[Rfam]
RNA sequence: AAUUGUGGGUAAUCGCGGUCGGCUUAAGUCGGCUGAGGAAAGUCCAUGCUCGCACAGACUGCGAUGUCUGUAGUGUUCGUGCUCGGUGAAAAAAUAAGCCGGGGGACUUCGAAAGAAGUUACGGCGGGGAAAAGCGCUAAGGUUUCGGCUAUGCGUGAAUACCUCUGAAAGUGCCACAGCGACGAUGACGCUAUCGGAAACGGUAGUGGUGGAACGUGGUAAACCCCUCGAGCGGGCAACCCAAACUACGGUAGGGGCGCUUCACACACGGAAAUGAACUAAGUUGUGGGGGGAGAGUUUUUACUCUCGAGAUAGAUGAUUACCGCUUGACCUAACUGUCCCUGGCAUUAGGUGAAGUACGGAACAUGGCUUACAGCG
Numbered sequence: 001a002a003u004u005g006u007g008g009g010u011a012a013u014c015g016c017g018g019u020c021g022g023c024u025u026a027a028g029u030c031g032g033c034u035g036a037g038g039a040a041a042g043u044c045c046a047u048g049c050u051c052g053c054a055c056a057g058a059c060u061g062c063g064a065u066g067u068c069u070g071u072a073g074u075g076u077u078c079g080u081g082c083u084c085g086g087u088g089a090a091a092a093a094a095u096a097a098g099c100c101g102g103g104g105g106a107c108u109u110c111g112a113a114a115g116a117a118g119u120u121a122c123g124g125c126g127g128g129g130a131a132a133a134g135c136g137c138u139a140a141g142g143u144u145u146c147g148g149c150u151a152u153g154c155g156u157g158a159a160u161a162c163c164u165c166u167g168a169a170a171g172u173g174c175c176a177c178a179g180c181g182a183c184g185a186u187g188a189c190g191c192u193a194u195c196g197g198a199a200a201c202g203g204u205a206g207u208g209g210u211g212g213a214a215c216g217u218g219g220u221a222a223a224c225c226c227c228u229c230g231a232g233c234g235g236g237c238a239a240c241c242c243a244a245a246c247u248a249c250g251g252u253a254g255g256g257g258c259g260c261u262u263c264a265c266a267c268a269c270g271g272a273a274a275u276g277a278a279c280u281a282a283g284u285u286g287u288g289g290g291g292g293g294a295g296a297g298u299u300u301u302u303a304c305u306c307u308c309g310a311g312a313u314a315g316a317u318g319a320u321u322a323c324c325g326c327u328u329g330a331c332c333u334a335a336c337u338g339u340c341c342c343u344g345g346c347a348u349u350a351g352g353u354g355a356a357g358u359a360c361g362g363a364a365c366a367u368g369g370c371u372u373a374c375a376g377c378g
Stems, first nucleotide, its partner, number of pairs: 004378003007374001008324007016035006040372003044369005049236005054071006077231003081227001082103006104122001105120006123226002126165004134156004141150003171224002173220003189208008240256003260291007293308005326357003330353005

Record summary: Shown here is a 378-nucleotide RNA from Secundilactobacillus collinoides, a member of the family "Bacterial RNase P class B". The literature on the family includes a 1998 paper in Annu Rev Biochem by Frank and Pace, "Ribonuclease P: unity and diversity in a tRNA processing ribozyme". Rfam's curators write: Ribonuclease P (RNase P) is a ubiquitous endoribonuclease, found in archaea, bacteria and eukarya as well as chloroplasts and mitochondria. Its best characterised activity is the generation of mature 5'-ends of tRNAs by cleaving the 5'-leader elements of precursor-tRNAs. Cellular RNase Ps are ribonucleoproteins. RNA from bacterial RNase Ps retains its catalytic activity in the absence of the protein subunit, i.e. it is a ribozyme. By type it is a ribozyme.